[Rfam]
RNA sequence: ACCGCGCUGCACAACUGGCGAUGAGGCCUUCCAAAGGCCGGAGGUGGUCAACCACCGGGAAGUGUGGUCGGGGCGCGCACAUGGCGCGCCACGGUUCAGCCGUUCGCCUGGGCAGCUUCG
Numbered sequence: 001a002c003c004g005c006g007c008u009g010c011a012c013a014a015c016u017g018g019c020g021a022u023g024a025g026g027c028c029u030u031c032c033a034a035a036g037g038c039c040g041g042a043g044g045u046g047g048u049c050a051a052c053c054a055c056c057g058g059g060a061a062g063u064g065u066g067g068u069c070g071g072g073g074c075g076c077g078c079a080c081a082u083g084g085c086g087c088g089c090c091a092c093g094g095u096u097c098a099g100c101c102g103u104u105c106g107c108c109u110g111g112g113c114a115g116c117u118u119c120g
Stems, first nucleotide, its partner, number of pairs: 003071001006068007015059002017108005044055004097115001099113003
The record is a 120-nucleotide sequence from Methylibium sp. NZG, which matches "ZMP/ZTP riboswitch aptamer (pfl RNA motif)" in Rfam. The source organism's lineage runs through Bacteria, Betaproteobacteria, Burkholderiales, Sphaerotilaceae and Methylibium.